[Rfam]
RNA sequence: UGCGCCACGUUGGGCCGCAUCAGUCGCGCCACGUUAUGAAACCGAACUCCAUGUGACUGAUGCAGGCUGACGUGAUGUGU
Numbered sequence: 001u002g003c004g005c006c007a008c009g010u011u012g013g014g015c016c017g018c019a020u021c022a023g024u025c026g027c028g029c030c031a032c033g034u035u036a037u038g039a040a041a042c043c044g045a046a047c048u049c050c051a052u053g054u055g056a057c058u059g060a061u062g063c064a065g066g067c068u069g070a071c072g073u074g075a076u077g078u079g080u
Stems, first nucleotide, its partner, number of pairs: 002080004006074008015065001017063012033047003
Notes: Rfam assigns this 80-nucleotide sequence from Phaethon lepturus to the family "mir-1791 microRNA precursor family". The family's consensus secondary structure was predicted with RNAalifold. A search with the family's covariance model found it, with a score of 76 bits.